Source information: A member of the RNA family "serC leader" from Roseibium aquae, 52 nucleotides long. The match comes from Rfam's covariance-model search (67 bits). About the family: This family is a putative regulatory RNA structure that is found upstream of the serC-serA operon in some alpha-proteobacteria. The final stem of the structure overlaps the ribosome binding site of the serC reading frame. Rfam links the family to the GO term regulation of gene expression.
RNA sequence: UGGCGGGCCACCCCUCCCCACCGAGGGGCAACUAUCUGAAAGGGUAGUCUGA
Numbered sequence: 001u002g003g004c005g006g007g008c009c010a011c012c013c014c015u016c017c018c019c020a021c022c023g024a025g026g027g028g029c030a031a032c033u034a035u036c037u038g039a040a041a042g043g044g045u046a047g048u049c050u051g052a
Base pairs, nucleotide, nucleotide: 011028012027013026014025015024016023032047033046034045035044036043037042
Description:
Taxonomically the source falls in Roseibium (Bacteria, Pseudomonadati, Pseudomonadota, Alphaproteobacteria). By type it is a cis-regulatory leader.